Rfam assigns this 95-nucleotide RNA from Acidobacteria bacterium AB60 to the family "TPP riboswitch aptamer (THI element)". A search with the family's covariance model found it, with a score of 70 bits. On this family, see Thore et al., J Am Chem Soc 2008: "Structural basis of thiamine pyrophosphate analogues binding to the eukaryotic riboswitch".

[Rfam]
Nucleotides: 095
Base pairs, nucleotide, nucleotide: 006083007082008081009080010079011046012045013044014043016040017033018032019031020030021029051076052075053074054073057070058069059068060067
Number, partner (000 for none) and nucleotide at each position: 001000u002000a003000a004000u005000u006083g007082a008081a009080a010079c011046a012045g013044g014043g015000g016040u017033g018032c019031u020030c021029c022000g023000a024000u025000a026000g027000g028000c029021g030020g031019g032018g033017c034000u035000g036000a037000g038000a039000a040016a041000u042000a043014c044013c045012c046011u047000c048000g049000a050000a051076c052075c053074c054073g055000a056000u057070c058069c059068g060067g061000a062000u063000a064000a065000u066000a067060c068059c069058g070057g071000c072000g073054u074053g075052g076051g077000a078000a079010g080009u081008u082007u083006c084000c085000g086000a087000a088000a089000g090000c091000g092000a093000a094000g095000c